[Rfam]
RNA: Eukaryotic large subunit ribosomal RNA, nucleotides 819 to 1140
Organism: Plasmodium gonderi
RNA sequence: GAGUCUAGCAAAUGUGCAAGUGUGUAUGAUAUUUUAAACAUUAAAAAUUUAAGAGUUUAUACGCAUAAUUAAUGUAAUAUGAUUAAUAUUUGUAGAGUUAGUUAUAAGAAAUUUCUCGCUAAUGCAUACAAUACCGGUAAGCAAAUAAUGCUUUAUUGAGUAUGAGCACAUUUGGUAGGACCCGAGAGGCUUUGAACUAAGCGUGAUGAGAUUGAAGUCAGACGAAAGUCUGAUGGAGGAUCGAACUGAUACUGACGUGCAAAUCGUUCAUUUCAAUCACGUUUAGGGGCGAAAGACUAAUCGAAAAGCCUAUUAGCUGGUU
Numbered sequence: 001g002a003g004u005c006u007a008g009c010a011a012a013u014g015u016g017c018a019a020g021u022g023u024g025u026a027u028g029a030u031a032u033u034u035u036a037a038a039c040a041u042u043a044a045a046a047a048u049u050u051a052a053g054a055g056u057u058u059a060u061a062c063g064c065a066u067a068a069u070u071a072a073u074g075u076a077a078u079a080u081g082a083u084u085a086a087u088a089u090u091u092g093u094a095g096a097g098u099u100a101g102u103u104a105u106a107a108g109a110a111a112u113u114u115c116u117c118g119c120u121a122a123u124g125c126a127u128a129c130a131a132u133a134c135c136g137g138u139a140a141g142c143a144a145a146u147a148a149u150g151c152u153u154u155a156u157u158g159a160g161u162a163u164g165a166g167c168a169c170a171u172u173u174g175g176u177a178g179g180a181c182c183c184g185a186g187a188g189g190c191u192u193u194g195a196a197c198u199a200a201g202c203g204u205g206a207u208g209a210g211a212u213u214g215a216a217g218u219c220a221g222a223c224g225a226a227a228g229u230c231u232g233a234u235g236g237a238g239g240a241u242c243g244a245a246c247u248g249a250u251a252c253u254g255a256c257g258u259g260c261a262a263a264u265c266g267u268u269c270a271u272u273u274c275a276a277u278c279a280c281g282u283u284u285a286g287g288g289g290c291g292a293a294a295g296a297c298u299a300a301u302c303g304a305a306a307a308g309c310c311u312a313u314u315a316g317c318u319g320g321u322u
Stems, first nucleotide, its partner, number of pairs: 005178003009174009020064003025059002028056001030054001068075002090131005097123006133161002135158006144149001181320002184317001188310006197286011208274001210242004217234007247270003251267002254265002288298002
Dot-bracket structure: ....(((.(((((((((..(((..((.(.(.......................).).))..)))...((....))..............(((((..((((((...............))))))...))))).((((((((...(....)...)))))).))....))))))))).)))..((.(...((((((...((((((((((((.((((...(((((((....)))))))....))))....(((.((.((........)))))))...).))))))))))).((.......))......))))))......).))..